Betaproteobacteria toxic small RNA: a 62-nucleotide RNA from Mitsuaria sp. PDC51.
RNA sequence: UGUCUCCUCCACCGCCUCCAUGGUGGAUUCAGCCCGAGGCCACAAGCCUCGGGCUUUUUUUC
Numbered sequence: 001u002g003u004c005u006c007c008u009c010c011a012c013c014g015c016c017u018c019c020a021u022g023g024u025g026g027a028u029u030c031a032g033c034c035c036g037a038g039g040c041c042a043c044a045a046g047c048c049u050c051g052g053g054c055u056u057u058u059u060u061u062c
Stems, first nucleotide, its partner, number of pairs: 008027007031055008

The match comes from Rfam's covariance-model search (62 bits). Overexpression in amino aid rich medium attenuates growth, suggesting role in repressing amino acid intake and metabolism.